[Rfam]
RNA sequence: GGGCAGGAUGUGUGAAGUAGUCCCACCGGCAAGCCGGCGUUCCUACUUCACUUUCCUUAUUCGCACCUUCGGUGCUCAACGGAAAUCCUGCUCUGCGAGGCA
Numbered sequence: 001g002g003g004c005a006g007g008a009u010g011u012g013u014g015a016a017g018u019a020g021u022c023c024c025a026c027c028g029g030c031a032a033g034c035c036g037g038c039g040u041u042c043c044u045a046c047u048u049c050a051c052u053u054u055c056c057u058u059a060u061u062c063g064c065a066c067c068u069u070c071g072g073u074g075c076u077c078a079a080c081g082g083a084a085a086u087c088c089u090g091c092u093c094u095g096c097g098a099g100g101c102a
Base pairs, nucleotide, nucleotide: 001093002092003091004090005089006088007087008086009085012051013050014049015048016047017046019044020043024039026037027036028035029034053084054083055082056081063075064074065073066072067071
RNA: traJ-II RNA
Organism: Burkholderia pseudomallei